[Rfam]
RNA sequence: CACAGGGCGUUGCCCUGUGCUAUGGGAUUCCGCCCUUUCAGGGCU
Numbered sequence: 001c002a003c004a005g006g007g008c009g010u011u012g013c014c015c016u017g018u019g020c021u022a023u024g025g026g027a028u029u030c031c032g033c034c035c036u037u038u039c040a041g042g043g044c045u
Stems, first nucleotide, its partner, number of pairs: 001019008032044005